[Rfam]
RNA sequence: AUCAGCUGUGGAAGUCCUCCUAGUGGUUCCAUCACCCCUUGAAAUUCAUGGAGUCAGUGGUGACUCCAUGAAUUUCAAGGGGUGAUGGAACCACUGGGAGGACUUCCACAGCUGAU
Numbered sequence: 001a002u003c004a005g006c007u008g009u010g011g012a013a014g015u016c017c018u019c020c021u022a023g024u025g026g027u028u029c030c031a032u033c034a035c036c037c038c039u040u041g042a043a044a045u046u047c048a049u050g051g052a053g054u055c056a057g058u059g060g061u062g063a064c065u066c067c068a069u070g071a072a073u074u075u076c077a078a079g080g081g082g083u084g085a086u087g088g089a090a091c092c093a094c095u096g097g098g099a100g101g102a103c104u105u106c107c108a109c110a111g112c113u114g115a116u
Stems, first nucleotide, its partner, number of pairs: 001116005007110008017100015033084007041076004046071009
Record summary:
This 116-nucleotide RNA sequence from Salvator merianae belongs to the Rfam family "mir-63 microRNA precursor family". It scores 58 bits against the family's covariance model. The base pairs follow the family's consensus structure, which was predicted with RNAalifold. The organism belongs to Salvator, within Eukaryota.